Background:
Shown here is a 102-nucleotide sequence from Clostridium isatidis, a member of the family "Purine riboswitch aptamer". The base pairs follow the family's consensus structure, which is taken from published work. Rfam links the family to the GO term purine nucleobase biosynthetic process. A reference for the family is Mandal et al. (2003), "Riboswitches Control Fundamental Biochemical Pathways in Bacillus subtilis and Other Bacteria", Cell. It scores 79 bits against the family's covariance model.

[Rfam]
RNA sequence: AUUAUAAAAGAAUAUAAAGCUCAUAUAAGUCCCAUAAUAUGGUUGGGAUGUCUCUACGAAAUGACCGAUAAUCAUUUCUCUAUGAGCGGAAGUGUGCCUAGG
Numbered sequence: 001a002u003u004a005u006a007a008a009a010g011a012a013u014a015u016a017a018a019g020c021u022c023a024u025a026u027a028a029g030u031c032c033c034a035u036a037a038u039a040u041g042g043u044u045g046g047g048a049u050g051u052c053u054c055u056a057c058g059a060a061a062u063g064a065c066c067g068a069u070a071a072u073c074a075u076u077u078c079u080c081u082a083u084g085a086g087c088g089g090a091a092g093u094g095u096g097c098c099u100a101g102g
Stems, first nucleotide, its partner, number of pairs: 019087007029049006058078007
Dot-bracket structure: ..................(((((((...((((((.........))))))........(((((((.......)))))))..)))))))...............